Shown here is a 116-nucleotide RNA from Thermomonospora echinospora, a member of the family "SAM (S-adenosyl methionine) riboswitch aptamer". Lineage of the source: Bacteria > Actinomycetes > Streptosporangiales > Thermomonosporaceae > Thermomonospora. Rfam describes the family as follows. SAM-IV is a mRNA element that regulates gene expression via direct sensing of S-adenosylmethionine (SAM or AdoMet). SAM-IV riboswitches share conserved nucleotide positions with the previously described SAM-I riboswitches sequence analysis and molecular recognition experiments suggest that SAM-I and SAM-IV riboswitches share similar ligand binding sites, but have different scaffolds. The match comes from Rfam's covariance-model search (109 bits). The family's consensus secondary structure is taken from published work. For this family Rfam cites "The aptamer core of SAM-IV riboswitches mimics the ligand-binding site of SAM-I riboswitches" (Weinberg et al., RNA, 2008).
RNA sequence: GGUCAUGAGUGCCAGCGCCAAGCCCUAGCUUGCUGGCCGGCAACCCUCCUCCGCGGUGGGGUGCCCUAGGUGAGGACCGGGCCCGCGCACAGCAAGGUGCCGGGCAAGUGCGGAUC
Dot-bracket structure: ((((....(.((((((....((......)).)))))))(((..(((.((.....))..))).))).........))))..(((((.((((......)))))))))...........